This 176-nucleotide sequence from Streptomyces albireticuli belongs to the Rfam family "Streptomyces sRNA scr5239".
Rfam classes the family as a small RNA.
It scores 70 bits against the family's covariance model.
Taxonomically the source falls in Streptomyces (Bacteria, Bacillati, Actinomycetota, Kitasatosporales).

[Rfam]
RNA sequence: CGUCCGCCUUCCCCGCACAGGAGGGCGGAGCGGGGCCCGGCGCUCUCUGCCCUGAUCGCGCCCGGCCUCAGGUCGGCCUCUCCGGCCGCGGGGUCCGCACACCCCACGGUCCCGGCGGGCCGAUGGCGGCUCCGGGCUGCGGUGCCGAACCGGGUCGAGGGUCCCGGGUCUGGCGC
Numbered sequence: 001c002g003u004c005c006g007c008c009u010u011c012c013c014c015g016c017a018c019a020g021g022a023g024g025g026c027g028g029a030g031c032g033g034g035g036c037c038c039g040g041c042g043c044u045c046u047c048u049g050c051c052c053u054g055a056u057c058g059c060g061c062c063c064g065g066c067c068u069c070a071g072g073u074c075g076g077c078c079u080c081u082c083c084g085g086c087c088g089c090g091g092g093g094u095c096c097g098c099a100c101a102c103c104c105c106a107c108g109g110u111c112c113c114g115g116c117g118g119g120c121c122g123a124u125g126g127c128g129g130c131u132c133c134g135g136g137c138u139g140c141g142g143u144g145c146c147g148a149a150c151c152g153g154g155u156c157g158a159g160g161g162u163c164c165c166g167g168g169u170c171u172g173g174c175g176c
Stems, first nucleotide, its partner, number of pairs: 003029004008024005032069006039062002042059002044055002073123007082115003129143003133139002147170002150167005